A member of the RNA family "S10-Clostridia ribosomal protein leader" from Gemmiger sp. An120, 79 nucleotides long.
The source organism's lineage runs through Bacteria, Bacillati, Bacillota, Clostridia and Gemmiger.
On this family, see Eckert and Weinberg, BMC Microbiol 2020: "Discovery of 20 novel ribosomal leader candidates in bacteria and archaea".
Pairs were carried over by alignment from the consensus structure, which is taken from published work.
RNA sequence: GAUAUGCGAUGAUGCGGGAGGUUGCCGUAGCGAUACGGGUUUUUCCGCGGAGUAUGUCCGAUCUAGAACCGGGCGAAAG
Number, nucleotide and partner (000 for none) at each position: 001g000002a000003u000004a000005u000006g000007c000008g000009a000010u000011g000012a000013u000014g048015c047016g046017g000018g045019a044020g043021g042022u000023u000024g000025c038026c037027g036028u035029a034030g000031c000032g000033a000034u029035a028036c027037g026038g025039g000040u000041u000042u021043u020044u019045c018046c016047g015048c014049g000050g000051a000052g000053u000054a000055u078056g000057u076058c075059c000060g000061a000062u073063c072064u071065a000066g000067a000068a000069c000070c000071g064072g063073g062074c000075g058076a057077a000078a055079g000